Rfam assigns this 276-nucleotide RNA sequence from Nannospalax galili to the family "Mason-Pfizer monkey virus packaging signal". Gene Ontology term of the family: viral genome packaging. This family represents a group of sequences that are related to the Mason-Pfizer monkey virus (MPMV) packaging signal. The packaging signal is located in the 5' UTR and is required for specific RNA encapsidation. The organism belongs to Nannospalax, within Eukaryota. A search with the family's covariance model found it, with a score of 146 bits.
[Rfam]
RNA sequence: UGGCGCCCAAUGUGGGUCCUGGAUACCAGGGGACAACGUGAGGGUCCGACAACAAAAAAAAAGAAGGGGUACACCCGUUCAAAUAGUUCAGAGACAUCGCGGUAGCCUGCUGUGACUGAGCCGACAGGAAAGUUGGUCGUUCAAUCAUGGGGCAAGAAUUAAGUCAGCAUCAGAAAUAUGUGAUACAGCUAAGAGAAGCUUUACAGGCAAGAGGAGUAAAGGUUACAACUGAGGAUUUAUUUCAUUUCUUUGAUUUUGUGAAAGACAUCUGCCCAU
Numbered sequence: 001u002g003g004c005g006c007c008c009a010a011u012g013u014g015g016g017u018c019c020u021g022g023a024u025a026c027c028a029g030g031g032g033a034c035a036a037c038g039u040g041a042g043g044g045u046c047c048g049a050c051a052a053c054a055a056a057a058a059a060a061a062a063g064a065a066g067g068g069g070u071a072c073a074c075c076c077g078u079u080c081a082a083a084u085a086g087u088u089c090a091g092a093g094a095c096a097u098c099g100c101g102g103u104a105g106c107c108u109g110c111u112g113u114g115a116c117u118g119a120g121c122c123g124a125c126a127g128g129a130a131a132g133u134u135g136g137u138c139g140u141u142c143a144a145u146c147a148u149g150g151g152g153c154a155a156g157a158a159u160u161a162a163g164u165c166a167g168c169a170u171c172a173g174a175a176a177u178a179u180g181u182g183a184u185a186c187a188g189c190u191a192a193g194a195g196a197a198g199c200u201u202u203a204c205a206g207g208c209a210a211g212a213g214g215a216g217u218a219a220a221g222g223u224u225a226c227a228a229c230u231g232a233g234g235a236u237u238u239a240u241u242u243c244a245u246u247u248c249u250u251u252g253a254u255u256u257u258g259u260g261a262a263a264g265a266c267a268u269c270u271g272c273c274c275a276u
Base pairs, nucleotide, nucleotide: 006031007030008029012026013025014024038050039049087129095118096117098114099113100112101111102110133155134154135153138152140151141150142149143148160203161202162201163199164198211251212250213249214248215247216246220238221237222236223235224234261276264273266271